Rfam assigns this 198-nucleotide RNA sequence from Georgenia yuyongxinii to the family "Actinobacteria sRNA Ms_IGR-5".
RNA sequence: ACACGAGAGAGGAGGUGGUCCUGCGGUGAAUUCUUUCUGGACGCGUGAGGUGACCACCCGCUAGCCCGUCAGCGGACGGACCCCAAGGUCCUCCCGCCGACGGCGGCGAGAACCCGGUGGUCACCGGAGCCCGCGGGGCCGUGAGCUCGUCCUCCACGGCACCCGGCCGAAAGGUCGGGAACCCGCGGGCUCUUCCAU
Numbered sequence: 001a002c003a004c005g006a007g008a009g010a011g012g013a014g015g016u017g018g019u020c021c022u023g024c025g026g027u028g029a030a031u032u033c034u035u036u037c038u039g040g041a042c043g044c045g046u047g048a049g050g051u052g053a054c055c056a057c058c059c060g061c062u063a064g065c066c067c068g069u070c071a072g073c074g075g076a077c078g079g080a081c082c083c084c085a086a087g088g089u090c091c092u093c094c095c096g097c098c099g100a101c102g103g104c105g106g107c108g109a110g111a112a113c114c115c116g117g118u119g120g121u122c123a124c125c126g127g128a129g130c131c132c133g134c135g136g137g138g139c140c141g142u143g144a145g146c147u148c149g150u151c152c153u154c155c156a157c158g159g160c161a162c163c164c165g166g167c168c169g170a171a172a173g174g175u176c177g178g179g180a181a182c183c184c185g186c187g188g189g190c191u192c193u194u195c196c197a198u
Stems, first nucleotide, its partner, number of pairs: 014058006059108004065102001069099001074094001127192011140158004145153001

Rfam classes the family as a small RNA. It scores 72 bits against the family's covariance model. The organism belongs to Georgenia, within Bacteria. On this family, see Li et al., RNA 2013: "Identification of small RNAs in Mycobacterium smegmatis using heterologous Hfq".